[Rfam]
RNA: SAM riboswitch aptamer (S box leader)
Organism: Hymenobacter crusticola
RNA sequence: UUUUUAUACAGAGGCGUGGAGAGACAGGCUCGACGAUACGCCGACAACCCCCAGAAUGUCUGGAACGGUGCCAAAUCCUGAUCAUAUAAAAA
Numbered sequence: 001u002u003u004u005u006a007u008a009c010a011g012a013g014g015c016g017u018g019g020a021g022a023g024a025c026a027g028g029c030u031c032g033a034c035g036a037u038a039c040g041c042c043g044a045c046a047a048c049c050c051c052c053a054g055a056a057u058g059u060c061u062g063g064a065a066c067g068g069u070g071c072c073a074a075a076u077c078c079u080g081a082u083c084a085u086a087u088a089a090a091a092a
Stems, first nucleotide, its partner, number of pairs: 001092008013042005021031003025080004043072001045070002048068002051063003076084001
Dot-bracket structure: ((((((((....(((((...(((.[[[[)))......)))))(.((.((.(((.......)))...)))).)...(]]]]...)))))))))